Shown here is a 91-nucleotide sequence from Clupea harengus, a member of the family "Small nucleolar SNORD12/SNORD106".
By type it is a C/D-box small nucleolar RNA.
NCBI's taxonomy places the organism under Eukaryota, Actinopteri, Osteoglossocephalai, Clupeoidei, Clupea.
Rfam links the family to the GO terms nucleolus and RNA processing.
The family has 8 seed sequences and 2,264 matches in Rfam 15.1.
RNA sequence: GUUGUGGUUUAUGAUGCUCAAUCUUUUUUCCCCGUCAUAUCGACCAUGGUGAUUGAUUCGAAAAUAGGCCAAAUCUUAUCUGAAACCACAC
Numbered sequence: 001g002u003u004g005u006g007g008u009u010u011a012u013g014a015u016g017c018u019c020a021a022u023c024u025u026u027u028u029u030c031c032c033c034g035u036c037a038u039a040u041c042g043a044c045c046a047u048g049g050u051g052a053u054u055g056a057u058u059c060g061a062a063a064a065u066a067g068g069c070c071a072a073a074u075c076u077u078a079u080c081u082g083a084a085a086c087c088a089c090a091c
Stems, first nucleotide, its partner, number of pairs: 003090007